[Rfam]
RNA sequence: AAUGGUGUGGUUAGCGCUUUUCAUUAUAAGUCUUAUGGGACUUUUUUUGUACUCAAAAAGCCCUAUAAGUCCUGCGGUGGGAAUUACCCACUACAGAAAUUAUAGAGCC
Numbered sequence: 001a002a003u004g005g006u007g008u009g010g011u012u013a014g015c016g017c018u019u020u021u022c023a024u025u026a027u028a029a030g031u032c033u034u035a036u037g038g039g040a041c042u043u044u045u046u047u048u049g050u051a052c053u054c055a056a057a058a059a060g061c062c063c064u065a066u067a068a069g070u071c072c073u074g075c076g077g078u079g080g081g082a083a084u085u086a087c088c089c090a091c092u093a094c095a096g097a098a099a100u101u102a103u104a105g106a107g108c109c
Stems, first nucleotide, its partner, number of pairs: 001025005009017001028043005060108002063105001065103004070098001072096001076092005